[Rfam]
RNA sequence: GCGAGGUGACGAUAGAAAUUCAUGAAUCUGUCAAUCCGCUGAACUGGAAACAGUGUGAUGUUACCAUGAAUCCCGACAGGUUCUGAUCGC
Numbered sequence: 001g002c003g004a005g006g007u008g009a010c011g012a013u014a015g016a017a018a019u020u021c022a023u024g025a026a027u028c029u030g031u032c033a034a035u036c037c038g039c040u041g042a043a044c045u046g047g048a049a050a051c052a053g054u055g056u057g058a059u060g061u062u063a064c065c066a067u068g069a070a071u072c073c074c075g076a077c078a079g080g081u082u083c084u085g086a087u088c089g090c
Stems, first nucleotide, its partner, number of pairs: 001090004
RNA: Small nucleolar RNA snoR14